A member of the RNA family "Purine riboswitch aptamer" from Virgibacillus necropolis, 101 nucleotides long.
[Rfam]
RNA sequence: AUAAAAAUAAUAGUUUUCACUCAUAUAAUCGCAGGAAUAUGGCCUGCAAGUUUCUACCGGACCCCGUAAAGGUACCGACUAUGAGUAGCGAUAUGAUUGUG
Dot-bracket structure: ..................(((((((...(.(((((.......))))).)........((((((.......))).)))..)))))))...............
Riboswitches are metabolite binding domains within certain messenger RNAs that serve as precision sensors for their corresponding targets.